[Rfam]
RNA sequence: UUGCCCAAUGAUUAUAGCAAGACGCGUUAUUACGAGGACUAAUGCUGGAACUCUUCCUCCUUCUCUUCCUCCUACUCUUCCUUCUUUGUCCCUUCCACUUUGUCCUUACCCCCCUCACUUUCCUCAGGGUAUCCAGCGUCCUAUGAGCAAGACUGAGAUAUGAGGGCAA
Numbered sequence: 001u002u003g004c005c006c007a008a009u010g011a012u013u014a015u016a017g018c019a020a021g022a023c024g025c026g027u028u029a030u031u032a033c034g035a036g037g038a039c040u041a042a043u044g045c046u047g048g049a050a051c052u053c054u055u056c057c058u059c060c061u062u063c064u065c066u067u068c069c070u071c072c073u074a075c076u077c078u079u080c081c082u083u084c085u086u087u088g089u090c091c092c093u094u095c096c097a098c099u100u101u102g103u104c105c106u107u108a109c110c111c112c113c114c115u116c117a118c119u120u121u122c123c124u125c126a127g128g129g130u131a132u133c134c135a136g137c138g139u140c141c142u143a144u145g146a147g148c149a150a151g152a153c154u155g156a157g158a159u160a161u162g163a164g165g166g167c168a169a
Stems, first nucleotide, its partner, number of pairs: 001169006035054003040049001
A member of the RNA family "Small nucleolar RNA SNORD97" from Pampusana beccarii, 169 nucleotides long.
Rfam links the family to the GO terms nucleolus and RNA processing.
On this family, see Vitali et al., Nucleic Acids Res 2003: "Identification of 13 novel human modification guide RNAs".
Lineage of the source: Eukaryota > Euteleostomi > Archelosauria > Dinosauria > Pampusana.
A search with the family's covariance model found it, with a score of 103 bits.
The family has 20 seed sequences and 639 matches in Rfam 15.1.